[Rfam]
Rfam assigns this 92-nucleotide RNA sequence from Rhizobium sp. BK251 to the family "Repression of heat shock gene expression (ROSE) element". It scores 62 bits against the family's covariance model. About the family: This family represents a 5' UTR cis-regulatory element found in heat shock mRNAs and is known as the ROSE (repression of heat shock gene expression) element. The ROSE element is a negative regulator of heat shock gene expression. The secondary structure is thought to be regulated by temperature. This regulation blocks access to the ribosome binding site under normal conditions. NCBI's taxonomy places the organism under Bacteria, Pseudomonadati, Pseudomonadota, Rhizobiaceae, Rhizobium. For this family Rfam cites "Replicon-specific regulation of small heat shock genes in Agrobacterium tumefaciens" (Balsiger et al., J Bacteriol, 2004).
RNA sequence: CCAGCCGCUGAGAUAGGGCUGGCUUCGCCGGGAGCGCCCGCUUUUGGCACUCUCGUAUCCAUGUUGCUUCAAGGAGGAUAUGGCUAUGGCAA
Numbered sequence: 001c002c003a004g005c006c007g008c009u010g011a012g013a014u015a016g017g018g019c020u021g022g023c024u025u026c027g028c029c030g031g032g033a034g035c036g037c038c039c040g041c042u043u044u045u046g047g048c049a050c051u052c053u054c055g056u057a058u059c060c061a062u063g064u065u066g067c068u069u070c071a072a073g074g075a076g077g078a079u080a081u082g083g084c085u086a087u088g089g090c091a092a
Stems, first nucleotide, its partner, number of pairs: 001022006008016002029055006036048003056086002059083007067076003